[Rfam]
RNA sequence: CCUCUCUCAACUCCACUUCAUCAUACUCAGUGUGUGGUUGGUGUAUUUUCAGAGAGAGAGGCGGGCCCUCCUAAUGCACUUCAGACCAGCCCGAGUGGCCUCUGUUCCUAGGAUUACAACAGCU
Numbered sequence: 001c002c003u004c005u006c007u008c009a010a011c012u013c014c015a016c017u018u019c020a021u022c023a024u025a026c027u028c029a030g031u032g033u034g035u036g037g038u039u040g041g042u043g044u045a046u047u048u049u050c051a052g053a054g055a056g057a058g059a060g061g062c063g064g065g066c067c068c069u070c071c072u073a074a075u076g077c078a079c080u081u082c083a084g085a086c087c088a089g090c091c092c093g094a095g096u097g098g099c100c101u102c103u104g105u106u107c108c109u110a111g112g113a114u115u116a117c118a119a120c121a122g123c124u
Base pairs, nucleotide, nucleotide: 002060003059004058005057006056007055008054011052012051020038021037022036023035024034025033026032069113070112071111072110074109076107083103084102085101089099090098091097
The family of this 124-nucleotide RNA sequence from Puma concolor is "Small nucleolar RNA SNORA64/SNORA10 family". The match comes from Rfam's covariance-model search (66 bits). The source organism's lineage runs through Eukaryota, Euteleostomi, Theria, Felinae and Puma. The family is grouped with related families in Rfam's "SNORA64 clan". Rfam describes the family as follows. This family belongs to the H/ACA class of small nucleolar RNAs (snoRNAs) which act as guides in the the modification of uridines to pseudouridines. This family includes the human snoRNAs U64 and ACA10 and mouse MBI-29. For this family Rfam cites "Nucleolar localization signals of box H/ACA small nucleolar RNAs" (Narayanan et al., EMBO J, 1999). Gene Ontology terms of the family: RNA processing and nucleolus.